[Rfam]
RNA sequence: UACCACAGGCAAUGGGCAAAGAAACGCCUUGGUGGUGAUGCUCUUCUCUCGGUCAGGGGUAGAGCAGAUGGCAACCCUUUGUUCGUCCUAGCCUGACGCCUGUCUUGGUGACCAAAGCUGUUUUAUGCCUAGGACACAUAA
Numbered sequence: 001u002a003c004c005a006c007a008g009g010c011a012a013u014g015g016g017c018a019a020a021g022a023a024a025c026g027c028c029u030u031g032g033u034g035g036u037g038a039u040g041c042u043c044u045u046c047u048c049u050c051g052g053u054c055a056g057g058g059g060u061a062g063a064g065c066a067g068a069u070g071g072c073a074a075c076c077c078u079u080u081g082u083u084c085g086u087c088c089u090a091g092c093c094u095g096a097c098g099c100c101u102g103u104c105u106u107g108g109u110g111a112c113c114a115a116a117g118c119u120g121u122u123u124u125a126u127g128c129c130u131a132g133g134a135c136a137c138a139u140a141a
Stems, first nucleotide, its partner, number of pairs: 001061004006056001008054001013051003019045003023039001025037004080136005095129001097127001101125002106120002109117001
RNA: Small nucleolar RNA SNORA48
Organism: Rattus norvegicus